[Rfam]
RNA sequence: CUCUUAUGAAGAGCGGUGGAGGGACUGGCCCUAUGAAAUCGCGGCAACCUUCAAUUUUACACAAAAAUUGAAAGGUGCUAAAUCCUGCAAAGCGAUCUGCUUUGAUAGAUGAGAG
Numbered sequence: 001c002u003c004u005u006a007u008g009a010a011g012a013g014c015g016g017u018g019g020a021g022g023g024a025c026u027g028g029c030c031c032u033a034u035g036a037a038a039u040c041g042c043g044g045c046a047a048c049c050u051u052c053a054a055u056u057u058u059a060c061a062c063a064a065a066a067a068u069u070g071a072a073a074g075g076u077g078c079u080a081a082a083u084c085c086u087g088c089a090a091a092g093c094g095a096u097c098u099g100c101u102u103u104g105a106u107a108g109a110u111g112a113g114a115g
Base pairs, nucleotide, nucleotide: 001115002114003113004112005111006110007109013042014041015040016039017038021031022030023029025087027085028084043079044078045077046076048075049074050072051071052070053069054068055067056066057065083107088104089103090102091101092100093099

A member of the RNA family "SAM riboswitch aptamer (S box leader)" from Pseudogracilibacillus auburnensis, 115 nucleotides long. The match comes from Rfam's covariance-model search (95 bits). Its family is annotated with regulation of gene expression in the Gene Ontology. The organism belongs to Pseudogracilibacillus, within Bacteria.